[Rfam]
RNA sequence: GGCCCAAAUUUGAAAUAGAGUAGACCAGUAGUAUCAGCUGACCCUACUGUUCCACUGCACUUCAAAUUUGGGCCC
Numbered sequence: 001g002g003c004c005c006a007a008a009u010u011u012g013a014a015a016u017a018g019a020g021u022a023g024a025c026c027a028g029u030a031g032u033a034u035c036a037g038c039u040g041a042c043c044c045u046a047c048u049g050u051u052c053c054a055c056u057g058c059a060c061u062u063c064a065a066a067u068u069u070g071g072g073c074c075c
Base pairs, nucleotide, nucleotide: 001074002073003072004071005070006069007068008067009066011064012063013062014061016059019056020055021054023052026049027048028047029046030045034041035040

mir-5928 microRNA precursor family: a 75-nucleotide sequence from Haemonchus placei. The base pairs follow the family's consensus structure, which was predicted with RNAalifold. A search with the family's covariance model found it, with a score of 69 bits.